RNA: Small nucleolar RNA SNORD34
Organism: Corymbia citriodora
RNA sequence: AGAGGCCAAUGAUGAUCUCCUUAUAGUCUUGCCUACAUUGCCUGACUAUAUGUAUGAUUAUGUUAUUGACUUUUCUGAGGCCUAU
Number, nucleotide and partner (000 for none) at each position: 001a085002g000003a000004g082005g081006c080007c079008a000009a000010u000011g000012a000013u000014g000015a000016u000017c000018u000019c000020c000021u000022u000023a000024u000025a000026g000027u000028c000029u000030u000031g000032c000033c000034u000035a000036c000037a000038u000039u000040g000041c000042c000043u000044g000045a000046c000047u000048a000049u000050a000051u000052g000053u000054a000055u000056g000057a000058u000059u000060a000061u000062g000063u000064u000065a000066u000067u000068g000069a000070c000071u000072u000073u000074u000075c000076u000077g000078a000079g007080g006081c005082c004083u000084a000085u001